[Rfam]
Small nucleolar RNA SNORD2: a 77-nucleotide RNA from Poecilia reticulata. The family's consensus secondary structure was predicted with WAR. Rfam links the family to the GO terms nucleolus and RNA processing. A reference for the family is Zhou et al. (2004), "Identification of a novel box C/D snoRNA from mouse nucleolar cDNA library", Gene. NCBI's taxonomy places the organism under Eukaryota, Opisthokonta, Teleostomi, Clupeocephala, Poecilia.
RNA sequence: GAGUGAAGUGAUGUUUAACCAUCUUUCGGGACUUACCCAACAAAUGGGGAUACUUUUUAUUACCUUACUGAUCACUC
Dot-bracket structure: ((((((.................................................................))))))
Numbered sequence: 001g002a003g004u005g006a007a008g009u010g011a012u013g014u015u016u017a018a019c020c021a022u023c024u025u026u027c028g029g030g031a032c033u034u035a036c037c038c039a040a041c042a043a044a045u046g047g048g049g050a051u052a053c054u055u056u057u058u059a060u061u062a063c064c065u066u067a068c069u070g071a072u073c074a075c076u077c
Stems, first nucleotide, its partner, number of pairs: 001077006